RNA sequence: GGUCAUGAGUGUCAGCGCGUAGCUCCGGCUUGCUGACCGGCAACCCUCCCCCGCGGCGGGGUGCCCCGGAUGACGACCUGGCCCGGCGCGCUGCGCGUUCGGGCAAGCGCGGACC
Numbered sequence: 001g002g003u004c005a006u007g008a009g010u011g012u013c014a015g016c017g018c019g020u021a022g023c024u025c026c027g028g029c030u031u032g033c034u035g036a037c038c039g040g041c042a043a044c045c046c047u048c049c050c051c052c053g054c055g056g057c058g059g060g061g062u063g064c065c066c067c068g069g070a071u072g073a074c075g076a077c078c079u080g081g082c083c084c085g086g087c088g089c090g091c092u093g094c095g096c097g098u099u100c101g102g103g104c105a106a107g108c109g110c111g112g113a114c115c
Stems, first nucleotide, its partner, number of pairs: 001078004009038001011037006021030002039065003044061003048056002081104006087097004
The record is a 115-nucleotide RNA sequence from Nakamurella flavida, which matches "SAM (S-adenosyl methionine) riboswitch aptamer" in Rfam. Gene Ontology terms of the family: S-adenosylmethionine metabolic process and regulation of gene expression. About the family: SAM-IV is a mRNA element that regulates gene expression via direct sensing of S-adenosylmethionine (SAM or AdoMet). SAM-IV riboswitches share conserved nucleotide positions with the previously described SAM-I riboswitches sequence analysis and molecular recognition experiments suggest that SAM-I and SAM-IV riboswitches share similar ligand binding sites, but have different scaffolds. Pairs were carried over by alignment from the consensus structure, which is taken from published work. The organism belongs to Nakamurella, within Bacteria. Clan: SAM clan.